[Rfam]
RNA sequence: AUUUCCAGAAAAGCGACGGACAGUGUCCUUUAGUCCAUCACUUUUCUGGGAUUUU
Numbered sequence: 001a002u003u004u005c006c007a008g009a010a011a012a013g014c015g016a017c018g019g020a021c022a023g024u025g026u027c028c029u030u031u032a033g034u035c036c037a038u039c040a041c042u043u044u045u046c047u048g049g050g051a052u053u054u055u
Base pairs, nucleotide, nucleotide: 001053003051004050005049006048007047008046009045010044011043012042013041015039016038018036019035020034021033
Dot-bracket structure: (.(((((((((((.((.((((...........)))).)).))))))))))).)..
Record summary: Shown here is a 55-nucleotide sequence from Solanum tuberosum, a member of the family "MIR8008 microRNA precursor family".